The record is a 67-nucleotide RNA from Bombyx mori, which matches "mir-2774 microRNA precursor family" in Rfam. Pairs were carried over by alignment from the consensus structure, which was predicted with RNAalifold. Rfam's curators put it in the seed alignment. Gene Ontology terms of the family: RISC complex and miRNA-mediated post-transcriptional gene silencing. For this family Rfam cites "MicroRNAs of Bombyx mori identified by Solexa sequencing" (Liu et al., BMC Genomics, 2010). The organism belongs to Bombyx, within Eukaryota.
RNA sequence: AAAACAUUCGGACCAUCGGUCUACCGAGCAAUAUCACCCGCUCGGUGGAAGAUCGUCCCUCCGUCGU
Number, nucleotide and partner (000 for none) at each position: 001a000002a000003a000004a064005c063006a000007u000008u000009c000010g058011g057012a056013c000014c000015a053016u052017c051018g000019g000020u049021c048022u047023a046024c045025c044026g043027a042028g041029c040030a000031a000032u000033a000034u000035c000036a000037c000038c000039c000040g029041c028042u027043c026044g025045g024046u023047g022048g021049a020050a000051g017052a016053u015054c000055g000056u012057c011058c010059c000060u000061c000062c000063g005064u004065c000066g000067u000